A member of the RNA family "Small nucleolar RNA R11/Z151" from Apium graveolens, 86 nucleotides long. By type it is a C/D-box small nucleolar RNA. Gene Ontology terms of the family: nucleolus and RNA processing. For this family Rfam cites "Identification of 66 box C/D snoRNAs in Arabidopsis thaliana: extensive gene duplications generated multiple isoforms predicting new ribosomal RNA 2'-O-methylation sites" (Barneche et al., J Mol Biol, 2001).
[Rfam]
RNA sequence: UGGCUUAUGAUGAUAAAUCUUUUAUCUUAGCGGAUUUCAGUGAGGUAUUUAUAUCAAUGAUCUGAAUGUUACACACACUGAAGCCC
Numbered sequence: 001u002g003g004c005u006u007a008u009g010a011u012g013a014u015a016a017a018u019c020u021u022u023u024a025u026c027u028u029a030g031c032g033g034a035u036u037u038c039a040g041u042g043a044g045g046u047a048u049u050u051a052u053a054u055c056a057a058u059g060a061u062c063u064g065a066a067u068g069u070u071a072c073a074c075a076c077a078c079u080g081a082a083g084c085c086c
Base pairs, nucleotide, nucleotide: 002085003084004083005082